Background:
Shown here is a 174-nucleotide sequence from Oryza glumipatula, a member of the family "MIR2118 microRNA precursor family". Pairs were carried over by alignment from the consensus structure, which was predicted with RNAalifold. Rfam 15.1 lists 2,377 matches to the family in 45 species.
[Rfam]
RNA sequence: GUAAGGAAGAGGAAGAAAUUGAGUGUCUAAGGGCAGUCGGAAUGGGAACAUUGAGGAAAGCCUACAGCGUCUUUCUCGUCCACUAGAAGUGGGGGGUAAAGAUAAUGUUUUUGUGUUUUCCUAGUGCCUCCCAUUCCUAUUGUCCUUAGAUACUCCUUCCUCUUCCUUUCAGCU
Dot-bracket structure: ........(((((.(((...(((..((((((((((.(.(((((((((.(((.(.(((((((.....................................................)))))))).)))..))))))))).).))))))))))..))).))).))))).........